[Rfam]
RNA sequence: UCAAAAAAGUGGAGGAUUGGGUCUGCACUGAAUGACAUGGCAUAGUGAGAUUCUCAUUCCUCCAUUUUAGCUGC
Numbered sequence: 001u002c003a004a005a006a007a008a009g010u011g012g013a014g015g016a017u018u019g020g021g022u023c024u025g026c027a028c029u030g031a032a033u034g035a036c037a038u039g040g041c042a043u044a045g046u047g048a049g050a051u052u053c054u055c056a057u058u059c060c061u062c063c064a065u066u067u068u069a070g071c072u073g074c
Stems, first nucleotide, its partner, number of pairs: 007068003010064007017056001022050002026047005
The record is a 74-nucleotide RNA sequence from Ascaris suum, which matches "mir-1175 microRNA precursor family" in Rfam. The base pairs follow the family's consensus structure, which was predicted with RNAalifold. It is one of the family's seed sequences.